Notes: The record is an 83-nucleotide RNA sequence from Streptomyces sp. PAMC 26508, which matches "nrdJ RNA" in Rfam.
RNA sequence: ACCUGUUCCGGGACGCUGUGCGCGGCGUCCGGAACAUCAGACACACACUGUGCCCUGGGAAGAACUGGGCACUUCAGGGCGUU
Numbered sequence: 001a002c003c004u005g006u007u008c009c010g011g012g013a014c015g016c017u018g019u020g021c022g023c024g025g026c027g028u029c030c031g032g033a034a035c036a037u038c039a040g041a042c043a044c045a046c047a048c049u050g051u052g053c054c055c056u057g058g059g060a061a062g063a064a065c066u067g068g069g070c071a072c073u074u075c076a077g078g079g080c081g082u083u
Stems, first nucleotide, its partner, number of pairs: 004036008013028006050072006057065001
Notes:
It is one of the family's seed sequences.